Shown here is a 161-nucleotide RNA sequence from Vanderwaltozyma polyspora, a member of the family "Small nucleolar RNA snR161". Taxonomically the source falls in Vanderwaltozyma polyspora (Eukaryota, Fungi, saccharomyceta, Saccharomycotina). The base pairs follow the family's consensus structure, which was predicted with WAR. The family is grouped with related families in Rfam's "SNORA44 clan". A reference for the family is Schattner et al. (2004), "Genome-wide searching for pseudouridylation guide snoRNAs: analysis of the Saccharomyces cerevisiae genome", Nucleic Acids Res.
[Rfam]
RNA sequence: UUAAUUAGCAACACCCAGUAUCAUUGGCUGUUUUAAUUUCACCAACAUCAUAACGGUCUCUUUAAUCUGGCAGAUAAAAUAUUUUUAAUUAUUGGACGACUUAAGUUCCGCUGUUGAAUUUAGUUGUAAUGUUCAUUAGCUUUACUGUUGUCUAUACAUCC
Numbered sequence: 001u002u003a004a005u006u007a008g009c010a011a012c013a014c015c016c017a018g019u020a021u022c023a024u025u026g027g028c029u030g031u032u033u034u035a036a037u038u039u040c041a042c043c044a045a046c047a048u049c050a051u052a053a054c055g056g057u058c059u060c061u062u063u064a065a066u067c068u069g070g071c072a073g074a075u076a077a078a079a080u081a082u083u084u085u086u087a088a089u090u091a092u093u094g095g096a097c098g099a100c101u102u103a104a105g106u107u108c109c110g111c112u113g114u115u116g117a118a119u120u121u122a123g124u125u126g127u128a129a130u131g132u133u134c135a136u137u138a139g140c141u142u143u144a145c146u147g148u149u150g151u152c153u154a155u156a157c158a159u160c161c
Stems, first nucleotide, its partner, number of pairs: 015070004027057006034050001036048001093154005099148002110140004115135005123130002